[Rfam]
Source information
Rfam assigns this 107-nucleotide RNA sequence from Papaver somniferum to the family "Small nucleolar RNA snoR97". The base pairs follow the family's consensus structure, which was predicted with WAR. It scores 68 bits against the family's covariance model. Rfam links the family to the GO terms RNA processing and nucleolus. Rfam 15.1 lists 862 matches to the family in 223 species.

RNA sequence: GGUAACUUGUGGACAUGAAGACUGGGACAACCCAUAUAGUGUGUGUUGUGUAUCAGCUUCUUCUUUGGUAAUCAACGAGAUGGGAGUUAUAUGACAGCACUAUAUUU
Numbered sequence: 001g002g003u004a005a006c007u008u009g010u011g012g013a014c015a016u017g018a019a020g021a022c023u024g025g026g027a028c029a030a031c032c033c034a035u036a037u038a039g040u041g042u043g044u045g046u047u048g049u050g051u052a053u054c055a056g057c058u059u060c061u062u063c064u065u066u067g068g069u070a071a072u073c074a075a076c077g078a079g080a081u082g083g084g085a086g087u088u089a090u091a092u093g094a095c096a097g098c099a100c101u102a103u104a105u106u107u
Stems, first nucleotide, its partner, number of pairs: 043100006055088006062080004